[Rfam]
RNA sequence: AAUAAAACUAAAUAGUUGCAUCGUAUAAUCUUGGGAAUAUGGCCCAUAAGUCUCUACCGGAACACCUUAAAUGAUCCGACUACGAUUUUUGAAUGAAGGGAG
Numbered sequence: 001a002a003u004a005a006a007a008c009u010a011a012a013u014a015g016u017u018g019c020a021u022c023g024u025a026u027a028a029u030c031u032u033g034g035g036a037a038u039a040u041g042g043c044c045c046a047u048a049a050g051u052c053u054c055u056a057c058c059g060g061a062a063c064a065c066c067u068u069a070a071a072u073g074a075u076c077c078g079a080c081u082a083c084g085a086u087u088u089u090u091g092a093a094u095g096a097a098g099g100g101a102g
Stems, first nucleotide, its partner, number of pairs: 018088001020086006029049001032046004058078004063073002